[Rfam]
RNA: Small nucleolar RNA SNORA42/SNORA80 family
Organism: Octodon degus
RNA sequence: GCAUGGUAACAGAUUUGCAGUGGGUCCAUCUGUGUGGGCCUUUCAUAGUGUACCCAGGCAAGAGCAAAGUUCCACCUCGAACCAUUGCCAGCCUGUCCUGUGGGUUGAGAAUGCUGGAGGAAGUGGCACAGUU
Numbered sequence: 001g002c003a004u005g006g007u008a009a010c011a012g013a014u015u016u017g018c019a020g021u022g023g024g025u026c027c028a029u030c031u032g033u034g035u036g037g038g039c040c041u042u043u044c045a046u047a048g049u050g051u052a053c054c055c056a057g058g059c060a061a062g063a064g065c066a067a068a069g070u071u072c073c074a075c076c077u078c079g080a081a082c083c084a085u086u087g088c089c090a091g092c093c094u095g096u097c098c099u100g101u102g103g104g105u106u107g108a109g110a111a112u113g114c115u116g117g118a119g120g121a122a123g124u125g126g127c128a129c130a131g132u133u
Stems, first nucleotide, its partner, number of pairs: 001059002004056001005054004015048003020043001022041003025037002072126004077121001083116002089107006